[Rfam]
RNA sequence: CGCAGCCCAGUCAAAUUCGGUCCCUGUCCCCCCGUGUCGGGGACCGGCCACCGGCUGCCACAGCAACCUCCGUGCUCCGAGUGCCCCCCGUCCCCUCCCGUGGGACAGGGGGACGGAUCCCCCACGGACACAU
Number, nucleotide and partner (000 for none) at each position: 001c000002g058003c057004a056005g055006c000007c000008c000009a000010g000011u000012c000013a000014a000015a000016u000017u000018c046019g045020g044021u043022c042023c041024c040025u039026g038027u000028c036029c000030c000031c000032c000033c000034g000035u000036g028037u000038c026039g025040g024041g023042g022043a021044c020045c019046g018047g000048c000049c000050a000051c000052c000053g000054g000055c005056u004057g003058c002059c000060a000061c000062a000063g000064c000065a000066a000067c000068c000069u000070c000071c000072g125073u124074g123075c000076u000077c000078c000079g000080a000081g000082u000083g000084c112085c111086c110087c109088c108089c000090g000091u000092c000093c000094c000095c000096u000097c000098c000099c000100g000101u000102g000103g000104g000105a000106c000107a000108g088109g087110g086111g085112g084113a000114c000115g000116g000117a000118u000119c000120c000121c000122c000123c074124a073125c072126g000127g000128a000129c000130a000131c000132a000133u000

The record is a 133-nucleotide sequence from Lepidothrix coronata, which matches "Small nucleolar RNA SNORA5" in Rfam.
Lineage of the source: Eukaryota > Eumetazoa > Craniata > Sauria > Lepidothrix.
From the family's description: ACA5 is a member of the H/ACA class of snoRNA that guide the sites of modification of uridines to pseudouridines.
The family's consensus secondary structure was predicted with RNAfold.
It is annotated as an H/ACA-box small nucleolar RNA.